[Rfam]
Overview
Shown here is a 76-nucleotide RNA from Crocodylus porosus, a member of the family "Mammalian CPEB3 ribozyme". Its family is annotated with RNA nuclease activity in the Gene Ontology. Taxonomically the source falls in Crocodylus (Eukaryota, Eumetazoa, Teleostomi, Crocodylidae).
RNA sequence: UCACAAGUUCAAGAGCAUAGCAGAAGUGCUGGCAUCAUGGCCCCUGGCAGAUUCCAAUGAAUCAGCAAAUUCUGCU
Dot-bracket structure: ............[.[[..((((((((((.......)))]..].]...(.(((((....))))).)....)))))))